RNA sequence: GCGUGCGUUCGGGGGGCGUUCGACUGAAAGGUCGAGAUUCAGGGUCAGGAUUAGCCUCCCGAACUUUGC
Numbered sequence: 001g002c003g004u005g006c007g008u009u010c011g012g013g014g015g016g017c018g019u020u021c022g023a024c025u026g027a028a029a030g031g032u033c034g035a036g037a038u039u040c041a042g043g044g045u046c047a048g049g050a051u052u053a054g055c056c057u058c059c060c061g062a063a064c065u066u067u068g069c
Stems, first nucleotide, its partner, number of pairs: 007064011020035005037051004

Description
Rfam assigns this 69-nucleotide sequence from Magnetospirillum molischianum to the family "RT-13 RNA". It is one of the family's seed sequences.